RNA sequence: AAUAUAAUUCUUAUAUAACUUAAGACAGCAGGUGUCGUUUUACGGCAUAAUAGACAAGCCUGCCGAGGUUGAUGGAUUUUUGAUAUAUAUAGCAUUUAUUUGCUAAGAUCAUAAAUACAGCCUACGGCAGAAAUGUCGCAGGCUGUUUUAAUUUACAAUA
Numbered sequence: 001a002a003u004a005u006a007a008u009u010c011u012u013a014u015a016u017a018a019c020u021u022a023a024g025a026c027a028g029c030a031g032g033u034g035u036c037g038u039u040u041u042a043c044g045g046c047a048u049a050a051u052a053g054a055c056a057a058g059c060c061u062g063c064c065g066a067g068g069u070u071g072a073u074g075g076a077u078u079u080u081u082g083a084u085a086u087a088u089a090u091a092g093c094a095u096u097u098a099u100u101u102g103c104u105a106a107g108a109u110c111a112u113a114a115a116u117a118c119a120g121c122c123u124a125c126g127g128c129a130g131a132a133a134u135g136u137c138g139c140a141g142g143c144u145g146u147u148u149u150a151a152u153u154u155a156c157a158a159u160a
Base pairs, nucleotide, nucleotide: 028063029062030061031060032059033058034046035045036044118145119144120143121142122141123140125138126137127136128135129134